chrB-b RNA: a 63-nucleotide RNA from Novimethylophilus kurashikiensis. The family's consensus secondary structure is taken from published work. It scores 41 bits against the family's covariance model.
RNA sequence: UGGGGAUUCGGCAGCCUCCCCGUUUCAAGAUGUCCGACCAUCCAGUCCGCAUCCAAGGUCUGC
Numbered sequence: 001u002g003g004g005g006a007u008u009c010g011g012c013a014g015c016c017u018c019c020c021c022g023u024u025u026c027a028a029g030a031u032g033u034c035c036g037a038c039c040a041u042c043c044a045g046u047c048c049g050c051a052u053c054c055a056a057g058g059u060c061u062g063c
Stems, first nucleotide, its partner, number of pairs: 001022006011063004029053005